[Rfam]
RNA sequence: CCGCCGCGGAGCAAUCCCCAGCGGGCGAGGCAGGAGUCAGCAGAGGUCGAAGUACCGAUCCUCGAACGCCAAUCGAGACGGGAAGGAC
Numbered sequence: 001c002c003g004c005c006g007c008g009g010a011g012c013a014a015u016c017c018c019c020a021g022c023g024g025g026c027g028a029g030g031c032a033g034g035a036g037u038c039a040g041c042a043g044a045g046g047u048c049g050a051a052g053u054a055c056c057g058a059u060c061c062u063c064g065a066a067c068g069c070c071a072a073u074c075g076a077g078a079c080g081g082g083a084a085g086g087a088c
Base pairs, nucleotide, nucleotide: 001023003022004021006019008017009016010015037044038043046088047087048086055081056080057079062076063075064074
RNA: Group II catalytic intron D1-D4-1